[Rfam]
This 159-nucleotide RNA sequence from Roseburia sp. CAG:197 belongs to the Rfam family "glmS glucosamine-6-phosphate activated ribozyme aptamer".
It is annotated as a riboswitch.
About the family: This entry contains a glucosamine-6-phosphate activated ribozyme that is found in the mRNA for GlmS. GlmS is an enzyme that uses fructose-6-phosphate and glutamine to generate glucosamine-6-phosphate.
RNA sequence: UUAAAAACUUUAGCGCUACGCAUCAGCAGGGGAAGCCUGUUGGUUCACGAGGUAUCAGGUCGUCGAAAAUUCAGCGGAUGCCUGGUCGUAGAUACGGACUGCGUAAUAUAACUACAAAUAUGAUGGAGACGUCAAAACAAAAGGUUAUAAUCCGUAAAU
Numbered sequence: 001u002u003a004a005a006a007a008c009u010u011u012a013g014c015g016c017u018a019c020g021c022a023u024c025a026g027c028a029g030g031g032g033a034a035g036c037c038u039g040u041u042g043g044u045u046c047a048c049g050a051g052g053u054a055u056c057a058g059g060u061c062g063u064c065g066a067a068a069a070u071u072c073a074g075c076g077g078a079u080g081c082c083u084g085g086u087c088g089u090a091g092a093u094a095c096g097g098a099c100u101g102c103g104u105a106a107u108a109u110a111a112c113u114a115c116a117a118a119u120a121u122g123a124u125g126g127a128g129a130c131g132u133c134a135a136a137a138c139a140a141a142a143g144g145u146u147a148u149a150a151u152c153c154g155u156a157a158a159u
Stems, first nucleotide, its partner, number of pairs: 022044007030036001054086005063074001065072002087103005107149007121134005